mir-278 microRNA precursor family: a 76-nucleotide RNA sequence from Bactrocera dorsalis. Rfam links the family to the GO terms RISC complex and miRNA-mediated post-transcriptional gene silencing.

RNA sequence: AGUGCGACCGGAUGAGGGUCCUCAACGACCGUUUUCAUUAAUAUGCGGGUCGGUGGGACUUUCGUCCGUUUGUAAG
Numbered sequence: 001a002g003u004g005c006g007a008c009c010g011g012a013u014g015a016g017g018g019u020c021c022u023c024a025a026c027g028a029c030c031g032u033u034u035u036c037a038u039u040a041a042u043a044u045g046c047g048g049g050u051c052g053g054u055g056g057g058a059c060u061u062u063c064g065u066c067c068g069u070u071u072g073u074a075a076g
Stems, first nucleotide, its partner, number of pairs: 003074005009068007017060005023055002026052005
Dot-bracket structure: ..(((((.(((((((.(((((.((.(((((.................))))).))))))).))))))).)))))..